[Rfam]
This 89-nucleotide RNA from Pantoea sp. Aalb belongs to the Rfam family "RpsF leader". Conserved and widely distributed to many bacterial species RNA structure. It precedes operon containing rpsF, which encodes ribosomal protein S6. Taxonomically the source falls in Pantoea (Bacteria, Pseudomonadati, Pseudomonadota, Erwiniaceae). It scores 37 bits against the family's covariance model.
RNA sequence: GCUUACCUGACUAAAGUUCCUUGCUUUCAUAGGUUGUAGAGAUUUUAACCGAGCCUUUAGAAGGCUAUAAUCCAUAAGGAGCACUGAUG
Numbered sequence: 001g002c003u004u005a006c007c008u009g010a011c012u013a014a015a016g017u018u019c020c021u022u023g024c025u026u027u028c029a030u031a032g033g034u035u036g037u038a039g040a041g042a043u044u045u046u047a048a049c050c051g052a053g054c055c056u057u058u059a060g061a062a063g064g065c066u067a068u069a070a071u072c073c074a075u076a077a078g079g080a081g082c083a084c085u086g087a088u089g
Stems, first nucleotide, its partner, number of pairs: 016082007023065006031056005